[Rfam]
CRISPR RNA direct repeat element: a 42-nucleotide sequence from Thalassiosira oceanica. A search with the family's covariance model found it, with a score of 36 bits. Lineage of the source: Eukaryota > Thalassiosirophyceae > Thalassiosirophycidae > Thalassiosiraceae > Thalassiosira.

RNA sequence: GUAACAUUCUUCUACGAGGCUGAAAGGAUGAAGUAUGCAACU
Numbered sequence: 001g002u003a004a005c006a007u008u009c010u011u012c013u014a015c016g017a018g019g020c021u022g023a024a025a026g027g028a029u030g031a032a033g034u035a036u037g038c039a040a041c042u
Stems, first nucleotide, its partner, number of pairs: 001041002005037003009033004